[Rfam]
RNA sequence: AUAUGACUCCUCAGCACCCGGCGGUGAUGAAUUGGAACGCAGGCGCGGACUCAGGGACCACUCCCCCUCCACAGACAUGAGACCAUAGGGGACCUGUCUGGGUGGCCUCAGGAAUAGGUGCUCCCCAAGGUAACAGCUCUGUUCGGUUU
Numbered sequence: 001a002u003a004u005g006a007c008u009c010c011u012c013a014g015c016a017c018c019c020g021g022c023g024g025u026g027a028u029g030a031a032u033u034g035g036a037a038c039g040c041a042g043g044c045g046c047g048g049a050c051u052c053a054g055g056g057a058c059c060a061c062u063c064c065c066c067c068u069c070c071a072c073a074g075a076c077a078u079g080a081g082a083c084c085a086u087a088g089g090g091g092a093c094c095u096g097u098c099u100g101g102g103u104g105g106c107c108u109c110a111g112g113a114a115u116a117g118g119u120g121c122u123c124c125c126c127a128a129g130g131u132a133a134c135a136g137c138u139c140u141g142u143u144c145g146g147u148u149u
Base pairs, nucleotide, nucleotide: 011136016131017130018129020125021124024121025120026119032111033110034109035108038047039046040045050105051104052102055099056098057097058096062092063091064090065089066088
RNA: Connexin-32 internal ribosome entry site (IRES)
Organism: Octodon degus